[Rfam]
RNA: MIR2907 microRNA precursor family
RNA sequence: GCGCCCUUUCCUCCACCCACUUGGCUGCCACGUGGCAGCUGAGCGAGGGCCUCGGGGUGACGC
Numbered sequence: 001g002c003g004c005c006c007u008u009u010c011c012u013c014c015a016c017c018c019a020c021u022u023g024g025c026u027g028c029c030a031c032g033u034g035g036c037a038g039c040u041g042a043g044c045g046a047g048g049g050c051c052u053c054g055g056g057g058u059g060a061c062g063c
Base pairs, nucleotide, nucleotide: 001061005057006056007055008054016049017048018047020043021042022041023040024039025038028035029034